[Rfam]
Nucleotides: 356
Base pairs, nucleotide, nucleotide: 040055041054042053043052044051059194060193061192062191063190069187070186071185072184073183074182075181084173085172086171088170089169090168094110095109096108097107098106111155112154113153114152115151116150117149195210196209197208200221201220202219204218205217206216322337323336324335325334328353329352330351331350332349333348
Number, partner (000 for none) and nucleotide at each position: 001000g002000g003000c004000c005000u006000u007000u008000u009000c010000c011000a012000g013000c014000c015000g016000c017000g018000c019000c020000g021000c022000a023000u024000g025000c026000c027000c028000u029000a030000u031000a032000u033000c034000a035000g036000g037000g038000g039000c040055g041054u042053c043052g044051g045000g046000g047000a048000u049000a050000c051044c052043c053042g054041g055040c056000u057000a058000u059194g060193g061192u062191g063190a064000u065000a066000a067000a068000c069187g070186u071185c072184c073183g074182c075181c076000g077000u078000a079000a080000u081000a082000a083000a084173c085172c086171c087000u088170u089169c090168g091000g092000a093000c094110c095109c096108g097107g098106g099000g100000g101000c102000a103000g104000u105000a106098c107097c108096c109095g110094g111155c112154g113153c114152c115151u116150c117149c118000a119000c120000c121000a122000a123000a124000a125000u126000c127000c128000g129000c130000g131000c132000g133000a134000g135000c136000c137000g138000c139000g140000g141000g142000u143000u144000u145000c146000g147000g148000c149117g150116g151115g152114g153113g154112c155111g156000a157000a158000a159000u160000a161000g162000g163000a164000u165000c166000g167000a168090c169089g170088g171086g172085g173084g174000c175000g176000u177000a178000a179000a180000g181075g182074g183073u184072g185071g186070g187069c188000u189000u190063u191062u192061g193060c194059c195210c196209g197208g198000c199000a200221u201220g202219g203000c204218u205217c206216c207000a208197c209196c210195g211000u212000u213000a214000u215000c216206g217205g218204g219202c220201c221200a222000u223000u224000c225000u226000a227000u228000a229000g230000u231000u232000g233000c234000c235000a236000a237000c238000g239000a240000c241000a242000a243000c244000u245000a246000c247000a248000g249000c250000u251000c252000g253000g254000u255000u256000g257000c258000u259000c260000u261000g262000g263000c264000c265000g266000c267000g268000u269000g270000a271000g272000c273000g274000g275000u276000u277000a278000g279000a280000a281000a282000a283000a284000c285000c286000a287000u288000u289000c290000u291000a292000a293000a294000g295000u296000c297000c298000u299000a300000a301000c302000g303000g304000g305000c306000u307000a308000g309000c310000u311000u312000c313000c314000g315000u316000u317000a318000g319000g320000c321000g322337g323336g324335g325334c326000c327000c328353g329352g330351a331350g332349g333348c334325g335324c336323c337322u338000g339000g340000c341000a342000a343000c344000a345000g346000a347000a348333g349332c350331c351330u352329c353328c354000a355000c356000u